[Rfam]
RNA sequence: CAUGUCCACGUCCGUCAUUCUAGUAGUAGGAAAGCGCGCCACCGGAACGGAUUGACCCGUUCGGAACAGGUAGGCGCGCAACAUCAGGUCCCAACGGGGCCUUUUUUAUUGCCCGUU
Numbered sequence: 001c002a003u004g005u006c007c008a009c010g011u012c013c014g015u016c017a018u019u020c021u022a023g024u025a026g027u028a029g030g031a032a033a034g035c036g037c038g039c040c041a042c043c044g045g046a047a048c049g050g051a052u053u054g055a056c057c058c059g060u061u062c063g064g065a066a067c068a069g070g071u072a073g074g075c076g077c078g079c080a081a082c083a084u085c086a087g088g089u090c091c092c093a094a095c096g097g098g099g100c101c102u103u104u105u106u107u108a109u110u111g112c113c114c115g116u117u
Base pairs, nucleotide, nucleotide: 009026029113030112032110034079035078036077037076038075039074040073041071042070045062046061047060048059049058050057086102087101088100089099090098091097092096
Rhizobiales sRNA Atu_C8: a 117-nucleotide RNA sequence from Roseibium limicola. By type it is a small RNA. The family's consensus secondary structure was predicted with CMfinder. It scores 51 bits against the family's covariance model.